The record is a 158-nucleotide sequence from Actinidia chinensis, which matches "U12 minor spliceosomal RNA" in Rfam.
For this family Rfam cites "Pre-mRNA splicing: the discovery of a new spliceosome doubles the challenge" (Tarn and Steitz, Trends Biochem Sci, 1997).
The pairing is the family consensus, mapped onto this sequence.
Taxonomically the source falls in Actinidia chinensis (Eukaryota, Magnoliopsida, Ericales, Actinidia).
By type it is a spliceosomal small nuclear RNA.
RNA sequence: UUGCCUUAAACUAAUGAGUAAGGAAAACAAAGCGAGCGGUGAGAGCUGCUUGCCGCGCAUUAACUAAACUUGUUUGCGCAAGAAUUUAUGGAGGGGGUAUAGGCUGGCCGAGCGCUGACGCUGCUUACUUCGCAGAACAAGCUUGGGCGGGCCUCCCA
Numbered sequence: 001u002u003g004c005c006u007u008a009a010a011c012u013a014a015u016g017a018g019u020a021a022g023g024a025a026a027a028c029a030a031a032g033c034g035a036g037c038g039g040u041g042a043g044a045g046c047u048g049c050u051u052g053c054c055g056c057g058c059a060u061u062a063a064c065u066a067a068a069c070u071u072g073u074u075u076g077c078g079c080a081a082g083a084a085u086u087u088a089u090g091g092a093g094g095g096g097g098u099a100u101a102g103g104c105u106g107g108c109c110g111a112g113c114g115c116u117g118a119c120g121c122u123g124c125u126u127a128c129u130u131c132g133c134a135g136a137a138c139a140a141g142c143u144u145g146g147g148c149g150g151g152c153c154u155c156c157c158a
Stems, first nucleotide, its partner, number of pairs: 004023005032053008055079005096157002101154005107148001109145002114142003121135004